[Rfam]
RNA sequence: AUAUUCCUUCGGGGCAGGGUGAAAUUCCCUACCGGCGGUGAUGAGCUUUUAUGGCUCUUAGUCCGUGACCCGGAUGCAAUUUUGCAGACGGUGGAUUUGGUGAAACUCCAAGGCCGACAGUUAAAGUCUGGAUGGGAGAAGGAAUGG
Numbered sequence: 001a002u003a004u005u006c007c008u009u010c011g012g013g014g015c016a017g018g019g020u021g022a023a024a025u026u027c028c029c030u031a032c033c034g035g036c037g038g039u040g041a042u043g044a045g046c047u048u049u050u051a052u053g054g055c056u057c058u059u060a061g062u063c064c065g066u067g068a069c070c071c072g073g074a075u076g077c078a079a080u081u082u083u084g085c086a087g088a089c090g091g092u093g094g095a096u097u098u099g100g101u102g103a104a105a106c107u108c109c110a111a112g113g114c115c116g117a118c119a120g121u122u123a124a125a126g127u128c129u130g131g132a133u134g135g136g137a138g139a140a141g142g143a144a145u146g147g
Stems, first nucleotide, its partner, number of pairs: 003145008017029003031127002033116002035066004061114002070091002096112005118130003
Rfam assigns this 147-nucleotide RNA sequence from Sporosarcina sp. BI001-red to the family "FMN riboswitch aptamer (RFN element)". Rfam describes the family as follows. The RFN element is a highly conserved domain that is found frequently in the 5'-untranslated regions of prokaryotic mRNAs that encode for flavin mononucleotide (FMN) biosynthesis and transport proteins. This element is a metabolite-dependent riboswitch that directly binds FMN in the absence of proteins. In Bacillus subtilis, the riboswitch most likely controls gene expression by causing premature transcription termination within the 5' untranslated region of the ribDEAHT operon and precluding access to the ribosome-binding site of ypaA mRNA.The FMN riboswitch structure, reported in present an FMN-bound six-stem junction, adopts a butterfly-like scaffold, stapled together by opposingly directed but nearly identically folded peripheral domains.